[Rfam]
RNA sequence: GUGCUCGUAGCUCAAUUGGAUAGAGCGUCGGCCUCCGAAGCCGAAGGUUGCAGGUUCGACUCCCGCCGAGCACG
Number, nucleotide and partner (000 for none) at each position: 001g073002u072003g071004c070005u069006c068007g067008u000009a000010g026011c025012u024013c023014a000015a000016u000017u000018g000019g000020a000021u000022a000023g013024a012025g011026c010027g000028u044029c043030g042031g041032c040033c000034u000035c000036c000037g000038a000039a000040g032041c031042c030043g029044a028045a000046g000047g000048u000049u000050g066051c065052a000053g063054g062055u000056u000057c000058g000059a000060c000061u000062c054063c053064c000065g051066c050067c007068g006069a005070g004071c003072a002073c001074g000

The record is a 74-nucleotide sequence from a Phycisphaerales bacterium, which matches "tRNA" in Rfam.
Transfer RNA (tRNA) molecules are approximately 80 nucleotides in length.
The source organism's lineage runs through Bacteria, Pseudomonadati, Planctomycetota, Phycisphaerae and Phycisphaerales.
The family's consensus secondary structure is taken from published work.